Rfam assigns this 132-nucleotide RNA sequence from Neotoma lepida to the family "Small nucleolar RNA SNORA51". Its family is annotated with nucleolus and RNA processing in the Gene Ontology. Lineage of the source: Eukaryota > Opisthokonta > Eumetazoa > Teleostomi > Neotoma. The family's RNA type in Rfam is H/ACA-box small nucleolar RNA. It scores 108 bits against the family's covariance model. The base pairs follow the family's consensus structure, which was predicted with PFOLD.
RNA sequence: GUCCUCCCUGUGCUCACCACAGGCUGUGUUCUUAUGCUGACUGUAUAUGGAAAGGAGACAGAGUAAUCCUACCCCCGUUCACAUAAGCCCAGGCCAUUGUGCCUAGUCUGUAAUGUGAAUGGGGAUACAUAG
Dot-bracket structure: ...((((............(((...((((....))))...)))..........))))..............((((..........((.(.((((......)))).).))...........))))........
Numbered sequence: 001g002u003c004c005u006c007c008c009u010g011u012g013c014u015c016a017c018c019a020c021a022g023g024c025u026g027u028g029u030u031c032u033u034a035u036g037c038u039g040a041c042u043g044u045a046u047a048u049g050g051a052a053a054g055g056a057g058a059c060a061g062a063g064u065a066a067u068c069c070u071a072c073c074c075c076c077g078u079u080c081a082c083a084u085a086a087g088c089c090c091a092g093g094c095c096a097u098u099g100u101g102c103c104u105a106g107u108c109u110g111u112a113a114u115g116u117g118a119a120u121g122g123g124g125a126u127a128c129a130u131a132g
Stems, first nucleotide, its partner, number of pairs: 004057004020043003026037004072124004086109002089106001091104004